[Rfam]
RNA sequence: UGGGUAGCCCCGAUCAGCUGCCAGACCCCCGACCCGGCAGAUUGAUCGGGGCUCCUUA
Numbered sequence: 001u002g003g004g005u006a007g008c009c010c011c012g013a014u015c016a017g018c019u020g021c022c023a024g025a026c027c028c029c030c031g032a033c034c035c036g037g038c039a040g041a042u043u044g045a046u047c048g049g050g051g052c053u054c055c056u057u058a
Stems, first nucleotide, its partner, number of pairs: 002057003007052011018040005